[Rfam]
This 139-nucleotide RNA from Tuwongella immobilis belongs to the Rfam family "tRNA". The source organism's lineage runs through Bacteria, Pseudomonadati, Planctomycetia, Gemmataceae and Tuwongella. Its family is annotated with triplet codon-amino acid adaptor activity in the Gene Ontology. Pairs were carried over by alignment from the consensus structure, which is taken from published work.

RNA sequence: GGAUGUUUAGCUCAGUCUGGUAGAGCGGCGGGCAUCAUUUGCCUGCGUCUUUGCGGCCUACUCUGUGACGACCUUGUAGGUGCGGCAAUAACGCGAUGCGACGGCUUCGCGUGCGAAGGUUCAAAUCCUUCAACAUCCA
Numbered sequence: 001g002g003a004u005g006u007u008u009a010g011c012u013c014a015g016u017c018u019g020g021u022a023g024a025g026c027g028g029c030g031g032g033c034a035u036c037a038u039u040u041g042c043c044u045g046c047g048u049c050u051u052u053g054c055g056g057c058c059u060a061c062u063c064u065g066u067g068a069c070g071a072c073c074u075u076g077u078a079g080g081u082g083c084g085g086c087a088a089u090a091a092c093g094c095g096a097u098g099c100g101a102c103g104g105c106u107u108c109g110c111g112u113g114c115g116a117a118g119g120u121u122c123a124a125a126u127c128c129u130u131c132a133a134c135a136u137c138c139a
Stems, first nucleotide, its partner, number of pairs: 001138007010026004028110004115131005